The record is an 89-nucleotide RNA sequence from a Pirellulaceae bacterium, which matches "c-di-GMP-I-GGC riboswitch aptamer" in Rfam.
RNA sequence: CCUCGAAAAGGCAAACCGCUCGCAAGGGCGGGGCGCAAAGCCAUGGGCCACGCGCGGACUUGUCCGCUCGCGGCAGCCGGCUGCCGAAA
Dot-bracket structure: ..(.......((...((((((....))))))..[))..((((..(((((......................))).]))))))...)...
A search with the family's covariance model found it, with a score of 62 bits.
The family's consensus secondary structure is taken from published work.